[Rfam]
RNA sequence: UUGACGGUGAACGGCCACACGUCGCCGCGGGCGACCAGGCCGUCGUCGCCGAAGUGGUCGCCGUCGACCAGCACGCCGAGGAUCAGCGAAUCGUCGUACUUGCCGACGCCGAGCUUGUGGGCCUUGCCGUGCGCCAGCAGCACCACCUGGUCGGCCGGCGCCCCGGCGGCGACGAUGACCUCGCCGGCGGCCACCUCGCGCUGGACGAAGCGGUCGGCCAGCGCGCCGAGCACCGCGUCGUCCUCGAACCCGCGCAGCAGCGGCAGCUCGGUCAGCUCGCGCGGGAUCACCUGCACGCGCGGGCCGACGCUGGUAAACCCGACCCGGCCGUCGCCGACCGCGUACGUCAGGCGGCGAUUGACGCGGUAGGUCCCGCCGGGCACGUCGACCCACGGGAGCAGGCGCAGCAGCCAGCGCGGGCUGAUGCCCGCCAUCUGCGGCGCCGACUUGGUGGUCGUCGCCAGGUUGCGAGCCGCCGCGACGGCGAGGCUCGUCUGCGCGUGGUCUCUCGG
Number, nucleotide and partner (000 for none) at each position: 001u000002u000003g000004a000005c000006g390007g389008u388009g000010a000011a385012c384013g000014g381015c380016c000017a000018c327019a000020c000021g324022u322023c321024g320025c000026c000027g000028c000029g000030g000031g000032c000033g000034a000035c313036c312037a311038g310039g000040c000041c000042g000043u000044c000045g308046u307047c306048g305049c302050c301051g300052a000053a000054g233055u232056g000057g000058u229059c228060g227061c000062c225063g224064u223065c111066g110067a000068c108069c000070a000071g000072c000073a000074c000075g103076c000077c102078g101079a100080g099081g000082a097083u096084c000085a094086g000087c000088g000089a000090a000091u000092c000093g000094u085095c000096g083097u082098a000099c080100u079101u078102g077103c075104c000105g000106a000107c000108g068109c000110c066111g065112a000113g000114c000115u000116u000117g222118u221119g000120g219121g000122c217123c216124u000125u000126g000127c212128c000129g000130u209131g000132c000133g000134c204135c203136a202137g201138c000139a000140g197141c000142a000143c000144c000145a000146c000147c000148u000149g192150g191151u000152c000153g000154g188155c187156c186157g185158g184159c183160g182161c000162c177163c000164c000165g000166g173167c000168g000169g000170c000171g000172a000173c166174g000175a000176u000177g162178a000179c000180c000181u000182c160183g159184c158185c157186g156187g155188c154189g000190g000191c150192c149193a000194c000195c000196u000197c140198g000199c000200g000201c137202u136203g135204g134205a000206c000207g000208a000209a130210g000211c000212g127213g000214u000215c000216g123217g122218c000219c120220a000221g118222c117223g064224c063225g062226c000227c060228g059229a058230g000231c000232a055233c054234c297235g296236c000237g294238u000239c000240g290241u289242c000243c000244u286245c285246g000247a000248a000249c283250c000251c281252g280253c279254g278255c000256a277257g276258c275259a000260g000261c270262g269263g000264c000265a000266g000267c000268u000269c262270g261271g000272u000273c000274a000275g258276c257277u256278c254279g253280c252281g251282c000283g249284g000285g245286a244287u000288c000289a241290c240291c000292u000293g000294c237295a000296c235297g234298c000299g000300c051301g050302g049303g000304c000305c048306g047307a046308c045309g000310c038311u037312g036313g035314u000315a000316a000317a000318c000319c000320c024321g023322a022323c000324c021325c000326g000327g018328c000329c342330g341331u340332c000333g000334c000335c000336g000337a000338c000339c000340g331341c330342g329343u000344a000345c000346g000347u000348c000349a000350g000351g000352c378353g377354g376355c375356g374357a000358u000359u000360g372361a371362c370363g000364c000365g000366g000367u000368a000369g000370g362371u361372c360373c000374c356375g355376c354377c353378g352379g000380g015381c014382a000383c000384g012385u011386c000387g000388a008389c007390c006391c000392a000393c000394g428395g427396g000397a425398g000399c423400a422401g421402g000403c418404g417405c416406a000407g415408c000409a000410g000411c000412c000413a000414g000415c407416g405417c404418g403419g000420g000421c401422u400423g399424a000425u397426g000427c395428c394429c000430g000431c000432c000433a000434u000435c000436u000437g476438c475439g474440g473441c000442g000443c470444c000445g000446a467447c465448u464449u463450g462451g461452u460453g000454g000455u000456c000457g000458u000459c000460g452461c451462c450463a449464g448465g447466u000467u446468g000469c000470g443471a000472g000473c440474c439475g438476c437477c511478g510479c000480g506481a505482c504483g000484g502485c501486g500487a000488g498489g000490c000491u000492c000493g000494u000495c000496u000497g000498c488499g000500c486501g485502u484503g000504g482505u481506c480507u000508c000509u000510c478511g477512g000